Shown here is an 85-nucleotide RNA sequence from Pseudoalteromonas piratica, a member of the family "c-di-GMP-I riboswitch aptamer".
RNA sequence: GUUCGUUAAUGGCAAACUCAGUGAAAACUGAGGACGCAAAGUUAUCGGUCUAAGGGAGUUCUCCUAUGAUUGCGAUACUGCCGCC
Numbered sequence: 001g002u003u004c005g006u007u008a009a010u011g012g013c014a015a016a017c018u019c020a021g022u023g024a025a026a027a028c029u030g031a032g033g034a035c036g037c038a039a040a041g042u043u044a045u046c047g048g049u050c051u052a053a054g055g056g057a058g059u060u061c062u063c064c065u066a067u068g069a070u071u072g073c074g075a076u077a078c079u080g081c082c083g084c085c
Stems, first nucleotide, its partner, number of pairs: 012037002017032006040079003045075003048070003055064003